RNA sequence: CUCGGAAGCCGGGCGGACGUAGUCUUCGCCAACCUGGUCAGGUCCUGACGGAAGCAGCCACAACGAAUUCGCUGCGGGUCGUUCCGGCUUCCACCGCC
Number, nucleotide and partner (000 for none) at each position: 001c000002u000003c000004g092005g091006a090007a089008g088009c000010c000011g084012g083013g082014c081015g080016g000017a000018c076019g075020u074021a073022g072023u071024c000025u067026u066027c065028g064029c000030c000031a000032a000033c000034c000035u060036g059037g058038u057039c000040a000041g000042g000043u052044c051045c050046u000047g000048a000049c000050g045051g044052a043053a000054g000055c000056a000057g038058c037059c036060a035061c000062a000063a000064c028065g027066a026067a025068u000069u000070c000071g023072c022073u021074g020075c019076g018077g000078g000079u000080c015081g014082u013083u012084c011085c000086g000087g000088c008089u007090u006091c005092c004093a000094c000095c000096g000097c000098c000